The record is an 87-nucleotide RNA sequence from Sulfitobacter pontiacus, which matches "Glycine riboswitch aptamer" in Rfam. The match comes from Rfam's covariance-model search (60 bits).

RNA sequence: CACACCGUUACGGGAGAACCGGCGCAAGCCGGUGCCGAAGGAGCAACCGCCCCGGAAACUCUCAGGCCAAAGGACCGCAACGGGACC
Numbered sequence: 001c002a003c004a005c006c007g008u009u010a011c012g013g014g015a016g017a018a019c020c021g022g023c024g025c026a027a028g029c030c031g032g033u034g035c036c037g038a039a040g041g042a043g044c045a046a047c048c049g050c051c052c053c054g055g056a057a058a059c060u061c062u063c064a065g066g067c068c069a070a071a072g073g074a075c076c077g078c079a080a081c082g083g084g085a086c087c
Base pairs, nucleotide, nucleotide: 006082007081008080009079011077012076013075019032020031021030022029034067035066036065037063038062041061042060043059047055048054

Rfam describes the family as follows. This family represents the bacterial glycine riboswitch.